Background:
Archaeal large subunit ribosomal RNA: a 97-nucleotide part of an RNA from Halocatena salina. Rfam 15.1 lists 2,955 matches to the family in 1,139 species. NCBI's taxonomy places the organism under Archaea, Methanobacteriota, Halobacteria, Natronomonadaceae, Halocatena.
RNA sequence: GAUGGAGCGUACAAGGCCGAUCGUGAAACGACGUGAGGGCGAUCUCACUGUAGGAAGCGAUCGGAGCCGACGUUCCAUCGUACGUUUUGAAAAACGA
Numbered sequence: 001g002a003u004g005g006a007g008c009g010u011a012c013a014a015g016g017c018c019g020a021u022c023g024u025g026a027a028a029c030g031a032c033g034u035g036a037g038g039g040c041g042a043u044c045u046c047a048c049u050g051u052a053g054g055a056a057g058c059g060a061u062c063g064g065a066g067c068c069g070a071c072g073u074u075c076c077a078u079c080g081u082a083c084g085u086u087u088u089g090a091a092a093a094a095c096g097a
Stems, first nucleotide, its partner, number of pairs: 001079010015068002019062006029053001034047005083096003